[Rfam]
RNA sequence: CUUCAACUUAAACAUGGAGGUGCUUUCUGAGACUUUUAGAGUAAGUGCUUCCAUGUUUUAGUGGAAG
Numbered sequence: 001c002u003u004c005a006a007c008u009u010a011a012a013c014a015u016g017g018a019g020g021u022g023c024u025u026u027c028u029g030a031g032a033c034u035u036u037u038a039g040a041g042u043a044a045g046u047g048c049u050u051c052c053a054u055g056u057u058u059u060a061g062u063g064g065a066a067g
Stems, first nucleotide, its partner, number of pairs: 001067003006062003010058016027041002
RNA: mir-302 microRNA precursor family
Organism: Prolemur simus